RNA: mir-8517 microRNA precursor family
Organism: Plutella xylostella
RNA sequence: UUAGUGGACGCUUUAGCUAUUGAACUGUUUUGUCCCUCUCUGUCAAAGAACAAAUUGUUCUCUUUCAGAGAGUGACACAACAGUUCUAUAGCUAAAGCGUCACCGCGUAU
Numbered sequence: 001u002u003a004g005u006g007g008a009c010g011c012u013u014u015a016g017c018u019a020u021u022g023a024a025c026u027g028u029u030u031u032g033u034c035c036c037u038c039u040c041u042g043u044c045a046a047a048g049a050a051c052a053a054a055u056u057g058u059u060c061u062c063u064u065u066c067a068g069a070g071a072g073u074g075a076c077a078c079a080a081c082a083g084u085u086c087u088a089u090a091g092c093u094a095a096a097g098c099g100u101c102a103c104c105g106c107g108u109a110u
Stems, first nucleotide, its partner, number of pairs: 001109001004106003011097010022086007029069004049059004